Rfam assigns this 94-nucleotide RNA from Acer saccharum to the family "MIR2275 microRNA precursor family". A search with the family's covariance model found it, with a score of 65 bits. Gene Ontology terms of the family: RISC complex and miRNA-mediated post-transcriptional gene silencing. The family's consensus secondary structure was predicted with RNAalifold.

RNA sequence: AAAUCGUAAGUAAGAAUUGGAGGAAACUAAACAAACGGAUCGACAUGAUCAAUAUGCAUUUGUUUAAUUUCCUCCAAUAUCUUAUCUCCGAUUU
Numbered sequence: 001a002a003a004u005c006g007u008a009a010g011u012a013a014g015a016a017u018u019g020g021a022g023g024a025a026a027c028u029a030a031a032c033a034a035a036c037g038g039a040u041c042g043a044c045a046u047g048a049u050c051a052a053u054a055u056g057c058a059u060u061u062g063u064u065u066a067a068u069u070u071c072c073u074c075c076a077a078u079a080u081c082u083u084a085u086c087u088c089c090g091a092u093u094u
Base pairs, nucleotide, nucleotide: 004091005090006089008087011084012083013082014081016078017077018076019075020074021073023071024070025069026068028066029065030064032062033061